[Rfam]
RNA sequence: AUGAGUGCCCCAUCACCCCAUUCUUUCCGCUGCUGCGCUGGCUUUCACGCUGCUGUUGUUGAAGUCGUGAGGCGCAACGCGAUGACCGAAGUCGAGCCGCUUGCCCCGGUUGCCGGGGAGGCGGCUUUUUUG
Numbered sequence: 001a002u003g004a005g006u007g008c009c010c011c012a013u014c015a016c017c018c019c020a021u022u023c024u025u026u027c028c029g030c031u032g033c034u035g036c037g038c039u040g041g042c043u044u045u046c047a048c049g050c051u052g053c054u055g056u057u058g059u060u061g062a063a064g065u066c067g068u069g070a071g072g073c074g075c076a077a078c079g080c081g082a083u084g085a086c087c088g089a090a091g092u093c094g095a096g097c098c099g100c101u102u103g104c105c106c107c108g109g110u111u112g113c114c115g116g117g118g119a120g121g122c123g124g125c126u127u128u129u130u131u132g
Stems, first nucleotide, its partner, number of pairs: 007038002009035001014029001041080002044077001048074004056067001058065002083094004095126006102120001104118004

The record is a 132-nucleotide RNA sequence from Paraburkholderia sp. BL10I2N1, which matches "Burkholderia sRNA 2" in Rfam.
Rfam describes the family as follows. Upregulated in response to iron ion depletion. Predicted targets include MerR family transcriptional regulator.
The family's RNA type in Rfam is small RNA.
NCBI's taxonomy places the organism under Bacteria, Pseudomonadota, Betaproteobacteria, Burkholderiaceae, Paraburkholderia.